Small nucleolar RNA R21: a 78-nucleotide RNA from Lupinus angustifolius. On this family, see Barneche et al., J Mol Biol 2001: "Identification of 66 box C/D snoRNAs in Arabidopsis thaliana: extensive gene duplications generated multiple isoforms predicting new ribosomal RNA 2'-O-methylation sites". Rfam classes the family as a C/D-box small nucleolar RNA.

RNA sequence: CAUCCCCAUGAUGAUUUUUUUGUUAAUAUUAAAGUAGUGGACUGAAUCUUCUUGUGGAGAAACAAAAUCUGAGGGAUG
Numbered sequence: 001c002a003u004c005c006c007c008a009u010g011a012u013g014a015u016u017u018u019u020u021u022g023u024u025a026a027u028a029u030u031a032a033a034g035u036a037g038u039g040g041a042c043u044g045a046a047u048c049u050u051c052u053u054g055u056g057g058a059g060a061a062a063c064a065a066a067a068u069c070u071g072a073g074g075g076a077u078g
Stems, first nucleotide, its partner, number of pairs: 001078006
Lineage of the source: Eukaryota > Embryophyta > Tracheophyta > Fabaceae > Lupinus.
The family's consensus secondary structure was predicted with PFOLD.
It scores 53 bits against the family's covariance model.
Gene Ontology terms of the family: nucleolus and RNA processing.